[Rfam]
RNA sequence: CAAAUUCCCAUUAGGGGAAGGUGAGAACCUUCGACCAAGGUUCGACAAAACCGGUACGGUUUUGAGCAACGCUUAGCGUUGACCCGCAGGGUGAGGUGCGAAGCGCCGAAUUAUCCUUCCCCCACCACCA
Numbered sequence: 001c002a003a004a005u006u007c008c009c010a011u012u013a014g015g016g017g018a019a020g021g022u023g024a025g026a027a028c029c030u031u032c033g034a035c036c037a038a039g040g041u042u043c044g045a046c047a048a049a050a051c052c053g054g055u056a057c058g059g060u061u062u063u064g065a066g067c068a069a070c071g072c073u074u075a076g077c078g079u080u081g082a083c084c085c086g087c088a089g090g091g092u093g094a095g096g097u098g099c100g101a102a103g104c105g106c107c108g109a110a111u112u113a114u115c116c117u118u119c120c121c122c123c124a125c126c127a128c129c130a
Stems, first nucleotide, its partner, number of pairs: 015121007022113001032093002035091002041088001043086002048060001067081006
RNA: RtT RNA